[Rfam]
RNA sequence: UUUGCCUUCAGAAUAACUUAACGGCGAAAACAAACGCUGUUUUGUUCAGACAGAGGCGCAAAUCAAAUGUUAAUAAUCUGAAUACGUUUGAGGGUACGGAACACAUCAUCCCCUGUUCCUGACCUAGAUAUAUUCGGAUAUUCACAUUUUAUUAUUAUUAUUAUUAUUAUUAUUU
Number, nucleotide and partner (000 for none) at each position: 001u000002u000003u058004g057005c056006c055007u054008u000009c053010a000011g000012a000013a000014u000015a046016a045017c044018u000019u000020a041021a040022c039023g000024g037025c036026g035027a000028a000029a000030a000031c000032a000033a000034a000035c026036g025037c024038u000039g022040u021041u020042u000043u000044g017045u016046u015047c000048a000049g000050a000051c000052a000053g009054a007055g006056g005057c004058g003059c000060a000061a000062a000063u000064c000065a000066a000067a000068u146069g145070u144071u000072a000073a141074u140075a139076a000077u138078c000079u000080g135081a134082a133083u132084a131085c000086g000087u000088u000089u000090g000091a000092g000093g000094g000095u000096a000097c000098g000099g000100a000101a000102c000103a000104c000105a000106u000107c000108a000109u000110c000111c000112c000113c000114u000115g000116u000117u000118c000119c000120u000121g000122a000123c000124c000125u000126a000127g000128a000129u000130a000131u084132a083133u082134u081135c080136g000137g000138a077139u075140a074141u073142u000143c000144a070145c069146a068147u000148u000149u000150u000151a000152u000153u000154a167155u166156u000157a164158u000159u000160a000161u000162u000163a000164u157165u000166a155167u154168u000169a000170u000171u000172a000173u000174u000175u000
RNA: Small nucleolar RNA snoR138